Shown here is a 167-nucleotide RNA sequence from Triticum aestivum, a member of the family "MIR2118 microRNA precursor family".
On this family, see Xue et al., Nucleic Acids Res 2009: "Characterization and expression profiles of miRNAs in rice seeds".
The base pairs follow the family's consensus structure, which was predicted with RNAalifold.
Rfam links the family to the GO terms miRNA-mediated post-transcriptional gene silencing and RISC complex.
RNA sequence: GUCGAGAAGAGGAAGAAAAGAUAGCCUGAGAGCAGUGGGGAUAGGAACAUGGAGGAAAGCCUAACUCGCUUUUUUCACCUCUUAUUGGAGGCGAGAAUUUAGUUUGGUAUUUCCCGAUGUCUCCUAUUCCUAUUGUUCUCAAGCACUCCUUCCUUUUCUUUUUGGCU
Numbered sequence: 001g002u003c004g005a006g007a008a009g010a011g012g013a014a015g016a017a018a019a020g021a022u023a024g025c026c027u028g029a030g031a032g033c034a035g036u037g038g039g040g041a042u043a044g045g046a047a048c049a050u051g052g053a054g055g056a057a058a059g060c061c062u063a064a065c066u067c068g069c070u071u072u073u074u075u076c077a078c079c080u081c082u083u084a085u086u087g088g089a090g091g092c093g094a095g096a097a098u099u100u101a102g103u104u105u106g107g108u109a110u111u112u113c114c115c116g117a118u119g120u121c122u123c124c125u126a127u128u129c130c131u132a133u134u135g136u137u138c139u140c141a142a143g144c145a146c147u148c149c150u151u152c153c154u155u156u157u158c159u160u161u162u163u164g165g166c167u
Base pairs, nucleotide, nucleotide: 009158010157011156012155013154015152016151017150020148021147025143027141028140029139030138031137032136033135034134036132037131038130039129040128041127042126043125044124045123046122048119049118050117052115054114055113056112057111058110